[Rfam]
RNA sequence: GGGCCGUUAGCUCAAUUGGUAGAGCCACCGACUCUUAAUCGGUUGGUUGUAGGUUCGAGUCCUACACGGCCCA
Numbered sequence: 001g002g003g004c005c006g007u008u009a010g011c012u013c014a015a016u017u018g019g020u021a022g023a024g025c026c027a028c029c030g031a032c033u034c035u036u037a038a039u040c041g042g043u044u045g046g047u048u049g050u051a052g053g054u055u056c057g058a059g060u061c062c063u064a065c066a067c068g069g070c071c072c073a
Base pairs, nucleotide, nucleotide: 001072002071003070004069005068006067007066010025011024012023013022027043028042029041030040031039049065050064051063052062053061
tRNA: a 73-nucleotide sequence from Oceanithermus profundus. By type it is a transfer RNA. A search with the family's covariance model found it, with a score of 73 bits.